[Rfam]
RNA sequence: AUAUUCUUAGACCCGAUCUUGUAGCAAGAACUGAGUAGUUCGUUAACUCGCUACGCGGUUCUUGUCACAAGACCGAGCCUGUGAAUAU
Numbered sequence: 001a002u003a004u005u006c007u008u009a010g011a012c013c014c015g016a017u018c019u020u021g022u023a024g025c026a027a028g029a030a031c032u033g034a035g036u037a038g039u040u041c042g043u044u045a046a047c048u049c050g051c052u053a054c055g056c057g058g059u060u061c062u063u064g065u066c067a068c069a070a071g072a073c074c075g076a077g078c079c080u081g082u083g084a085a086u087a088u
Stems, first nucleotide, its partner, number of pairs: 001088006008081003012077001014075002017072005024065010035054002
This 88-nucleotide RNA from Oryza sativa belongs to the Rfam family "MIR1861 microRNA precursor family". The organism belongs to Oryza, within Eukaryota. It is one of the family's seed sequences. Pairs were carried over by alignment from the consensus structure, which was predicted with RNAalifold.